The record is a 554-nucleotide part of an RNA from Kosmotoga olearia, which matches "Bacterial small subunit ribosomal RNA" in Rfam.
RNA sequence: UGGAUGGAGGGUUUGAUCCUGGCUCAGGGUGAACGCUGGCGGCGUGCCUGACACAUGCAAGUCGUACGGGCGGACCCCCUUCGGGGGGCGAGCCAGUGGCGAACGGGUGAGUAACACGUGGGAACAUAUCCGCUGGUGGGGGAUAACUACCCGAAAGGGUAGCUAAUACCGCAUAAGCCCGAAAGGGGAAAGGUGCAACAGCAUCGCCAGUGGAGUGGCCCGCGGCCCAUCAGCUAGUUGGUGGGGUAAGAGCCCACCAAGGCGACGACGGGUAGCCGGCGUGAGAGCGCGACCGGCCACAAGGACACUGAGACACGGGUCCUACUCCUACGGGAGGCAGCAGUGCGGAAUAUUGGACAAUGGGCGAAAGCCUGAUCCAGCGACGCCGCGUGCGGGACGAAGGCCUUCGGGUCGUAAACCGCUGUGGUAAGGGACGAAUAGCCGGUGGAGUGGAAAGCCACCGGAGGAGACGGUACCUUACUAGGAAGCCCCGGCUAACUACGUGCCAGCAGCCGCGGUAAUACGUAGGGGGCGAGCGUUACCCGGAAUCACUG
Dot-bracket structure: ........(((((.......))))).((((.((((((.(((((((((....(((.(((..(((..((.((.(..((((....))))..)...)).)))))......(((.......((((((..((...(((((((.(.((.....((((((....))))))......)).).....(((....)))....(((........))).)))))))..)).)))))).(((....(((..((((((((.......)))))))))))......)))..((((((((....))))...))))))).(((((............))))).((((....))))...)))))).).....(.(((...(((((....))))).)))).)).))))))..((((......((((....)))).....))))....((((((...(.....(((((((.........)))))))......)....))))))......(((((......(((((.....((....)).......)))))))))).))))))))))..........